[Rfam]
RNA sequence: UUGCUGGCAUUGUACUUUCUCUUGAAGUUUUACUCGCCGGUUGUCAUUUCAAAUUUGCAGACAAAUCUGCUUACCGAGCUUCAUAUAUGU
Numbered sequence: 001u002u003g004c005u006g007g008c009a010u011u012g013u014a015c016u017u018u019c020u021c022u023u024g025a026a027g028u029u030u031u032a033c034u035c036g037c038c039g040g041u042u043g044u045c046a047u048u049u050c051a052a053a054u055u056u057g058c059a060g061a062c063a064a065a066u067c068u069g070c071u072u073a074c075c076g077a078g079c080u081u082c083a084u085a086u087a088u089g090u
Stems, first nucleotide, its partner, number of pairs: 023083007036070002039067004043062003
RNA: Small nucleolar RNA snoR109